Shown here is an 88-nucleotide sequence from Triticum urartu, a member of the family "MIR1120/MIR1122 microRNA precursor family".
[Rfam]
RNA sequence: AUACAUACUUCCGUCCUAGAAUAUAAGAACGUUUUUAACACUAUACUAGUGUUAGAAACGUUCUUAUAUUUUAGGACGGAGGGAGUAC
Numbered sequence: 001a002u003a004c005a006u007a008c009u010u011c012c013g014u015c016c017u018a019g020a021a022u023a024u025a026a027g028a029a030c031g032u033u034u035u036u037a038a039c040a041c042u043a044u045a046c047u048a049g050u051g052u053u054a055g056a057a058a059c060g061u062u063c064u065u066a067u068a069u070u071u072u073a074g075g076a077c078g079g080a081g082g083g084a085g086u087a088c
Stems, first nucleotide, its partner, number of pairs: 003086002006084001008082005014076005020070023
The family's consensus secondary structure was predicted with RNAalifold. A search with the family's covariance model found it, with a score of 86 bits.